A member of the RNA family "small nucleolar RNA snoR117" from Medicago truncatula, 92 nucleotides long. The literature on the family includes a 2009 paper in Nucleic Acids Res by Chen and Wu, "Mining small RNA sequencing data: a new approach to identify small nucleolar RNAs in Arabidopsis". Rfam links the family to the GO terms RNA processing and nucleolus.
[Rfam]
RNA sequence: GGCCUGUGAUGUAUGAAUAUUGUUUGUACCGUCUGAGCUGAUUCUCUUUUAGAGUUCUCUGAUUGGUACAAUAAUUCUUGAAUUUGAGGCUU
Numbered sequence: 001g002g003c004c005u006g007u008g009a010u011g012u013a014u015g016a017a018u019a020u021u022g023u024u025u026g027u028a029c030c031g032u033c034u035g036a037g038c039u040g041a042u043u044c045u046c047u048u049u050u051a052g053a054g055u056u057c058u059c060u061g062a063u064u065g066g067u068a069c070a071a072u073a074a075u076u077c078u079u080g081a082a083u084u085u086g087a088g089g090c091u092u
Base pairs, nucleotide, nucleotide: 001091002090003089004088